[Rfam]
RNA sequence: GGUUCGGGAGCUGUUCGGUGGGACGAGCAGCAUGAAUUGAACCACCCCCUGCUUCGCAAGCGGCCCGUAUCCGUAGCCCGACGGAAUACGCG
Numbered sequence: 001g002g003u004u005c006g007g008g009a010g011c012u013g014u015u016c017g018g019u020g021g022g023a024c025g026a027g028c029a030g031c032a033u034g035a036a037u038u039g040a041a042c043c044a045c046c047c048c049c050u051g052c053u054u055c056g057c058a059a060g061c062g063g064c065c066c067g068u069a070u071c072c073g074u075a076g077c078c079c080g081a082c083g084g085a086a087u088a089c090g091c092g
Base pairs, nucleotide, nucleotide: 001043002042003041004040005039010031011030012029013028014027015026016025017024064092066090067089068088070085071084072083073082
RNA: Rhodo-rpoB RNA